[Rfam]
RNA sequence: GCUUGAUAAGGGCAAAUCUAAUGAAAGUUAGAGACGCAAAGUUACCGGUCUAAUGGGAAACCUAUGAUAGCGGGACUGCAAAU
Numbered sequence: 001g002c003u004u005g006a007u008a009a010g011g012g013c014a015a016a017u018c019u020a021a022u023g024a025a026a027g028u029u030a031g032a033g034a035c036g037c038a039a040a041g042u043u044a045c046c047g048g049u050c051u052a053a054u055g056g057g058a059a060a061c062c063u064a065u066g067a068u069a070g071c072g073g074g075a076c077u078g079c080a081a082a083u
Base pairs, nucleotide, nucleotide: 012037013036017032018031019030020029021028022027040077041076042075043074045073046072047071048068049067050066055062056061
Dot-bracket structure: ...........((...((((((....))))))...))..((((.((((((....((....))...)))..)))))))......